[Rfam]
RNA sequence: UGAAAAUAGUGCAUACUUCUUCGUAUAACCUCGCAGAGCUAUACUGAUAGAACGGAGCGAGGGUUUCUACUGGAAGCCGUAUCUUCCUAACUACGAAAAUGAGAAUGGUGACU
Numbered sequence: 001u002g003a004a005a006a007u008a009g010u011g012c013a014u015a016c017u018u019c020u021u022c023g024u025a026u027a028a029c030c031u032c033g034c035a036g037a038g039c040u041a042u043a044c045u046g047a048u049a050g051a052a053c054g055g056a057g058c059g060a061g062g063g064u065u066u067c068u069a070c071u072g073g074a075a076g077c078c079g080u081a082u083c084u085u086c087c088u089a090a091c092u093a094c095g096a097a098a099a100u101g102a103g104a105a106u107g108g109u110g111a112c113u
Stems, first nucleotide, its partner, number of pairs: 018099001020097006029062006071089001072087005
RNA: Purine riboswitch aptamer